[Rfam]
RNA sequence: GAGACAGAGGUUCGCGACCAUCCCUCUAUAAAAAACUAGGGACUA
Number, nucleotide and partner (000 for none) at each position: 001g000002a000003g000004a000005c000006a027007g026008a025009g024010g023011u000012u000013c000014g000015c000016g037017a000018c000019c000020a000021u000022c000023c010024c009025u008026c007027u006028a000029u000030a000031a000032a000033a000034a000035a000036c000037u016038a000039g000040g000041g000042a000043c000044u000045a000
RNA: PreQ1 (pre queuosine) riboswitch aptamer